[Rfam]
RNA sequence: CGACUGCUUGCGCCCCAUCUGCGCAGGCCAAGGCCAUACGGACAGCCGAGUCGAAUGCCGA
Numbered sequence: 001c002g003a004c005u006g007c008u009u010g011c012g013c014c015c016c017a018u019c020u021g022c023g024c025a026g027g028c029c030a031a032g033g034c035c036a037u038a039c040g041g042a043c044a045g046c047c048g049a050g051u052c053g054a055a056u057g058c059c060g061a
Base pairs, nucleotide, nucleotide: 001053002052003051004050005049006028007027008026009025010024011023012022013021
This 61-nucleotide RNA belongs to the Rfam family "Streptococcus sRNA SpF59 (ldcC RNA)". Rfam classes the family as a small RNA. The sequence is in the family's curated seed alignment.